[Rfam]
RNA sequence: GUAGAUGCUCAUUCCACCUCUUAUGUUCGCUUCGGCCUCAUAAACCCAGGAAUGACGCAGAGCCACUUUAAGGUACCCGUUGUCCAGCCAGCCUGUAUCGCUUACGCCUUACAGGAAUACAGGGCACACCGUUGAGUCGGGUACCAAUCGGUUGUCUGACCGACCUGAUACUUAUACCUGCCACUGUUGUGGCAGGUUUUUUUUU
Dot-bracket structure: ((...(((((((..(.(.(.......(.(...).)......)......)).)))).)))..))........(((((((...((((........((((............))))........)))).............)))))))........(((.....))).........(.((((((((......)))))))).)......

The family of this 205-nucleotide RNA from Erwinia sp. Leaf53 is "GlmZ RNA activator of glmS mRNA". It is annotated as a small RNA. The base pairs follow the family's consensus structure, which is taken from published work. From the family's description: This RNA was discovered in E. coli during a large scale screen. The sraJ gene was expressed in early logarithmic phase, but its level decreased with cell growth. Specific cleavage products of this RNA were found. Identified in Yersinia pseudotuberculosis as Ysr248/153/sR016.